About this RNA: This 188-nucleotide RNA from Pontibacillus marinus belongs to the Rfam family "Lysine riboswitch aptamer". Riboswitches are metabolite binding domains within certain messenger RNAs that serve as precision sensors for their corresponding targets. Allosteric rearrangement of mRNA structure is mediated by ligand binding, and this results in modulation of gene expression. This family includes riboswitches that sense lysine in a number of genes involved in lysine metabolism, including lysC. Pairs were carried over by alignment from the consensus structure, which is taken from published work.

RNA sequence: CGAUGAGGUAGAGGUGCAUUUAGCAUGAAUACCCUAUGGGAGGAUGACAACGAGGAUCAUAGGGGGAAAGGGCUACUUGCCGAAGUAUAAAAUAGGUGUCUACCUACUUAUGCUGGUAUGUUCUUGAAUAAAGAAUAUACUGUCAUGCAAAUCUGAACGUAUGGAUUGCAUGAUGCGCUACUGAUCGA
Numbered sequence: 001c002g003a004u005g006a007g008g009u010a011g012a013g014g015u016g017c018a019u020u021u022a023g024c025a026u027g028a029a030u031a032c033c034c035u036a037u038g039g040g041a042g043g044a045u046g047a048c049a050a051c052g053a054g055g056a057u058c059a060u061a062g063g064g065g066g067a068a069a070g071g072g073c074u075a076c077u078u079g080c081c082g083a084a085g086u087a088u089a090a091a092a093u094a095g096g097u098g099u100c101u102a103c104c105u106a107c108u109u110a111u112g113c114u115g116g117u118a119u120g121u122u123c124u125u126g127a128a129u130a131a132a133g134a135a136u137a138u139a140c141u142g143u144c145a146u147g148c149a150a151a152u153c154u155g156a157a158c159g160u161a162u163g164g165a166u167u168g169c170a171u172g173a174u175g176c177g178c179u180a181c182u183g184a185u186c187g188a
Stems, first nucleotide, its partner, number of pairs: 007182005016080003021075004032064008084114007095103001115141011143173007